RNA sequence: CGCAGACACUCACCCGUCCACGGCAGGAGCGGGGGACCCACAGGCAAGACCGCCUGUUCCGGUCUCCGGAACAGGCUUGGGGUAAAGCCGCGCUCCGGCGCGGCCGGGCAUCUCCAGCCCGCACCCGACAGCUCACCUCGCAGGCGCCGGAGAGGAACC
Numbered sequence: 001c002g003c004a005g006a007c008a009c010u011c012a013c014c015c016g017u018c019c020a021c022g023g024c025a026g027g028a029g030c031g032g033g034g035g036a037c038c039c040a041c042a043g044g045c046a047a048g049a050c051c052g053c054c055u056g057u058u059c060c061g062g063u064c065u066c067c068g069g070a071a072c073a074g075g076c077u078u079g080g081g082g083u084a085a086a087g088c089c090g091c092g093c094u095c096c097g098g099c100g101c102g103g104c105c106g107g108g109c110a111u112c113u114c115c116a117g118c119c120c121g122c123a124c125c126c127g128a129c130a131g132c133u134c135a136c137c138u139c140g141c142a143g144g145c146g147c148c149g150g151a152g153a154g155g156a157a158c159c
Stems, first nucleotide, its partner, number of pairs: 001146003009027002029141006039079002080126003088103004106120004